[Rfam]
RNA: Enterobacteria rnk leader
Organism: Enterobacter sp. 638
RNA sequence: UUCAUCUGCGCGAUGAAUGUGACAUUCAUCACUUCAAACUUCGGUGUUCAGCCAGUAUCAUCAGGAGAGAUAAAACCCUCGCUGCCAUACGGCGAGGGUUUUCUUUUGGA
Numbered sequence: 001u002u003c004a005u006c007u008g009c010g011c012g013a014u015g016a017a018u019g020u021g022a023c024a025u026u027c028a029u030c031a032c033u034u035c036a037a038a039c040u041u042c043g044g045u046g047u048u049c050a051g052c053c054a055g056u057a058u059c060a061u062c063a064g065g066a067g068a069g070a071u072a073a074a075a076c077c078c079u080c081g082c083u084g085c086c087a088u089a090c091g092g093c094g095a096g097g098g099u100u101u102u103c104u105u106u107u108g109g110a
Base pairs, nucleotide, nucleotide: 015035016034017033019032020031021030022029073101074100075099076098077097078096079095080094081093082092083091084090